[Rfam]
RNA sequence: UUUGCAAGUUCGAGGCUAUAGCAGAAGCGCUUAUGGUGCAGCCCUGUCAAAUUCCAGCAAGUCCUGUGAAUUCUGCU
Numbered sequence: 001u002u003u004g005c006a007a008g009u010u011c012g013a014g015g016c017u018a019u020a021g022c023a024g025a026a027g028c029g030c031u032u033a034u035g036g037u038g039c040a041g042c043c044c045u046g047u048c049a050a051a052u053u054c055c056a057g058c059a060a061g062u063c064c065u066g067u068g069a070a071u072u073c074u075g076c077u
Base pairs, nucleotide, nucleotide: 012044014043015042016041017040020077021076022075023074024073025072026071027039028038029037048066049065051062052061053060
Mammalian CPEB3 ribozyme: a 77-nucleotide RNA from Alligator mississippiensis. The mammalian CPEB3 ribozyme is a self cleaving RNA located in the second intron of the CPEB3 gene which belongs to a family of genes regulating messenger RNA polyadenylation.